[Rfam]
Nucleotides: 359
Stems, first nucleotide, its partner, number of pairs: 001326004010321008019312003036060005045050001061083009084088001096305007103297002107121003124159008132149001136145003162292004167222003172219002174215005181210003189202004223241006242246001262278006340357005
Number, partner (000 for none) and nucleotide at each position: 001326c002325g003324g004323g005000a006000g007000c008000a009000a010321c011320c012319g013318a014317c015316g016315u017314u018000a019312g020311g021310g022000a023000a024000u025000u026000c027000g028000g029000c030000a031000a032000g033000u034000u035000a036060g037059u038058c039057c040056c041000g042000u043000a044000a045050g046000u047000u048000c049000g050045c051000g052000a053000u054000a055000a056040g057039g058038g059037a060036u061083g062082c063081c064080u065079g066078c067077u068076c069075c070000g071000g072000a073000u074000a075069g076068g077067a078066g079065c080064a081063g082062g083061u084088c085000g086000c087000a088084g089000u090000g091000a092000c093000u094000c095000g096305g097304a098303c099302g100301c101300u102299c103297c104296g105000a106000c107121u108120g109119u110000c111000u112000a113000g114000u115000a116000a117000c118000a119109a120108c121107a122000u123000a124159g125158g126157u127156g128155a129154c130153c131152g132149c133000a134000a135000a136145u137144c138143c139000g140000c141000a142000a143138g144137g145136a146000c147000u148000c149132g150000u151000a152131c153130g154129g155128u156127c157126a158125c159124u160000g161000a162292a163291u164290c165289c166000u167222g168221c169220c170000c171000a172219g173218u174215g175214c176213a177212g178211g179000u180000a181210u182209c183208u184000g185000a186000a187000c188000a189202c190201c191200c192199g193000g194000u195000a196000c197000a198000a199192c200191g201190g202189g203000g204000c205000g206000a207000a208183g209182g210181a211178c212177c213176u214175g215174u216000u217000a218173a219172c220169g221168g222167c223241g224240g225239g226238g227237g228236u229000a230000a231000c232000u233000a234000u235000g236228a237227c238226c239225c240224u241223c242246u243000u244000a245000a246242g247000g248000u249000a250000g251000c252000g253000u254000a255000g256000u257000a258000c259000c260000u261000u262278g263277c264276c265275g266274c267273u268000u269000c270000a271000g272000u273267a274266g275265c276264g277263g278262c279000u280000u281000g282000c283000a284000u285000g286000a287000a288000u289165g290164g291163a292162u293000c294000a295000a296104c297103g298000a299102g300101a301100g302099c303098g304097u305096c306000a307000c308000u309000g310021u311020c312019c313000c314017a315016a316015c317014g318013u319012u320011g321010g322000g323004c324003c325002c326001g327000g328000u329000g330000a331000a332000c333000u334000g335000u336000a337000c338000g339000u340357u341356c342355c343354a344353g345000u346000g347000c348000g349000g350000a351000g352000u353344c354343u355342g356341g357340a358000g359000a
Archaeal large subunit ribosomal RNA: a 359-nucleotide part of an RNA from Halorussus gelatinilyticus. The base pairs follow the family's consensus structure, which is taken from published work. On this family, see Yusupov et al., Science 2001: "Crystal structure of the ribosome at 5.5 A resolution".